RNA sequence: AAACCCUAGGUCGGCUGACUCCUAGUCAAGGGCUCGUGGUGGCUGGUGGGCCCUGAACGAGGGUUCUGGAGGCCUGGGUUUGAAUAUC
Numbered sequence: 001a002a003a004c005c006c007u008a009g010g011u012c013g014g015c016u017g018a019c020u021c022c023u024a025g026u027c028a029a030g031g032g033c034u035c036g037u038g039g040u041g042g043c044u045g046g047u048g049g050g051c052c053c054u055g056a057a058c059g060a061g062g063g064u065u066c067u068g069g070a071g072g073c074c075u076g077g078g079u080u081u082g083a084a085u086a087u088c
Stems, first nucleotide, its partner, number of pairs: 005078006012071001015068001017066002020063004025058002029054002032051004
The family of this 88-nucleotide sequence from Macaca mulatta is "mir-345 microRNA precursor family". Its family is annotated with miRNA-mediated post-transcriptional gene silencing and RISC complex in the Gene Ontology. Rfam 15.1 lists 135 matches to the family in 128 species.